Source information
A member of the RNA family "IS605-orfB-I RNA", 220 nucleotides long.
RNA sequence: UCCUUAUAUAACGAUAUUAUACGCAAGACAGUAUAGUCGCUCCCUGUAAGGAAUAAAAUGCGAGAGGUGGUGUUGUAUUAGUGAGAUAACAUCAAGGUUGAAACACCAAUACCUCUCAGGAUAACCGUAAGUCCUAGAAAAUUUUAUUCUUUAAAAUUAAUCUUUUAGAAUUAUGAAAGUCAAAUUUGGUACUUUUAUAUAUUUUAAAAGUUACGGUAAG
Numbered sequence: 001u002c003c004u005u006a007u008a009u010a011a012c013g014a015u016a017u018u019a020u021a022c023g024c025a026a027g028a029c030a031g032u033a034u035a036g037u038c039g040c041u042c043c044c045u046g047u048a049a050g051g052a053a054u055a056a057a058a059u060g061c062g063a064g065a066g067g068u069g070g071u072g073u074u075g076u077a078u079u080a081g082u083g084a085g086a087u088a089a090c091a092u093c094a095a096g097g098u099u100g101a102a103a104c105a106c107c108a109a110u111a112c113c114u115c116u117c118a119g120g121a122u123a124a125c126c127g128u129a130a131g132u133c134c135u136a137g138a139a140a141a142u143u144u145u146a147u148u149c150u151u152u153a154a155a156a157u158u159a160a161u162c163u164u165u166u167a168g169a170a171u172u173a174u175g176a177a178a179g180u181c182a183a184a185u186u187u188g189g190u191a192c193u194u195u196u197a198u199a200u201a202u203u204u205u206a207a208a209a210g211u212u213a214c215g216g217u218a219a220g
Base pairs, nucleotide, nucleotide: 001052002051003050004049005048006047007046008045010041012039013038014037015036018035019034020033021032022031023029062117063116064115065114066113067112068108069107070106071105072104073103074102088099089098118135119134120133121132122131124217125216126215127214128213129212130157137151138150140148141147162210163209164208165207166206167205168204169203170202171201172199173198174197175196176195177194178193179192180191